[Rfam]
RNA sequence: AUUGGGAGUGUGCGUAAGAACUCCACUCGAAGUGAAUAAGUCUGGUGUACUUCCCCGAUAUCAGAAUUUUUUACUCGAGUGGGGCUCUAUGCACACCGCUACAUGUA
Numbered sequence: 001a002u003u004g005g006g007a008g009u010g011u012g013c014g015u016a017a018g019a020a021c022u023c024c025a026c027u028c029g030a031a032g033u034g035a036a037u038a039a040g041u042c043u044g045g046u047g048u049a050c051u052u053c054c055c056c057g058a059u060a061u062c063a064g065a066a067u068u069u070u071u072u073a074c075u076c077g078a079g080u081g082g083g084g085c086u087c088u089a090u091g092c093a094c095a096c097c098g099c100u101a102c103a104u105g106u107a
Stems, first nucleotide, its partner, number of pairs: 010094007018087002021084010032074005038068002041065008